The family of this 58-nucleotide RNA sequence from Pristionchus pacificus is "mir-8364 microRNA precursor family". Its family is annotated with RISC complex and miRNA-mediated post-transcriptional gene silencing in the Gene Ontology. Pairs were carried over by alignment from the consensus structure, which was predicted with RNAalifold.
RNA sequence: UCUUCAUUUCGCAUACUCUCUCUCUCAGAGAGCUGAGAGAGCAUGGGAAAUGAGGAGA
Numbered sequence: 001u002c003u004u005c006a007u008u009u010c011g012c013a014u015a016c017u018c019u020c021u022c023u024c025u026c027a028g029a030g031a032g033c034u035g036a037g038a039g040a041g042c043a044u045g046g047g048a049a050a051u052g053a054g055g056a057g058a
Stems, first nucleotide, its partner, number of pairs: 001056007010047001012045003016041002019038004